[Rfam]
RNA sequence: GAUUGUAUAGUGUAGUGGUUAGCACACCGGCUUCUGACGCAGCCGGAAACCCUGGUUCGAUUCCAGGUACAGUCA
Number, nucleotide and partner (000 for none) at each position: 001g074002a073003u072004u071005g070006u069007a068008u000009a000010g025011u024012g023013u022014a000015g000016u000017g000018g000019u000020u000021a000022g013023c012024a011025c010026a000027c046028c045029g044030g043031c042032u000033u000034c000035u000036g000037a000038c000039g000040c000041a000042g031043c030044c029045g028046g027047a000048a000049a000050c000051c067052c066053u065054g064055g063056u000057u000058c000059g000060a000061u000062u000063c055064c054065a053066g052067g051068u007069a006070c005071a004072g003073u002074c001075a000

This 75-nucleotide RNA from Apiosordaria backusii belongs to the Rfam family "tRNA". The organism belongs to Apiosordaria, within Eukaryota. Rfam's curators write: Transfer RNA (tRNA) molecules are approximately 80 nucleotides in length. Its family is annotated with triplet codon-amino acid adaptor activity in the Gene Ontology.